[Rfam]
RNA: serC leader
Organism: Pseudorhodobacter turbinis
RNA sequence: AAGUGGGACACCCUUCCCCAACGAAGGGCACAUAUCUGUGAGGAUACUAUCA
Numbered sequence: 001a002a003g004u005g006g007g008a009c010a011c012c013c014u015u016c017c018c019c020a021a022c023g024a025a026g027g028g029c030a031c032a033u034a035u036c037u038g039u040g041a042g043g044a045u046a047c048u049a050u051c052a
Stems, first nucleotide, its partner, number of pairs: 011028006033046005